[Rfam]
RNA sequence: AAGGGCUAUAGCUCUUUUAGAAUUUGUCUAGCGGGUUUUCUGACUUUCCUUGGAACCCAA
Numbered sequence: 001a002a003g004g005g006c007u008a009u010a011g012c013u014c015u016u017u018u019a020g021a022a023u024u025u026g027u028c029u030a031g032c033g034g035g036u037u038u039u040c041u042g043a044c045u046u047u048c049c050u051u052g053g054a055a056c057c058c059a060a
Base pairs, nucleotide, nucleotide: 034057035056038055039054040053041052042051043050
RNA: U7 small nuclear RNA
Organism: Mus spicilegus